[Rfam]
RNA sequence: UCAAUCAGCGAGGGGUGUCGAUUGCCAACCAUGGACCAGUUCCAUGCGUUGACCGGCUGAGAUAAAACCCUUUGAACCUGAUCCGGUUCAUACCGGCGGAGGAACUGCUGCUUUCAUUUGUU
Numbered sequence: 001u002c003a004a005u006c007a008g009c010g011a012g013g014g015g016u017g018u019c020g021a022u023u024g025c026c027a028a029c030c031a032u033g034g035a036c037c038a039g040u041u042c043c044a045u046g047c048g049u050u051g052a053c054c055g056g057c058u059g060a061g062a063u064a065a066a067a068c069c070c071u072u073u074g075a076a077c078c079u080g081a082u083c084c085g086g087u088u089c090a091u092a093c094c095g096g097c098g099g100a101g102g103a104a105c106u107g108c109u110g111c112u113u114u115c116a117u118u119u120g121u122u
Stems, first nucleotide, its partner, number of pairs: 006110005011071004016065001017057004077102003083096004
Dot-bracket structure: .....(((((((((.(((((.................................)))).......)..)))).....(((...((((......))))...)))...)))))............
Shown here is a 122-nucleotide RNA sequence, a member of the family "TPP riboswitch aptamer (THI element)". Rfam links the family to the GO term thiamine pyrophosphate binding.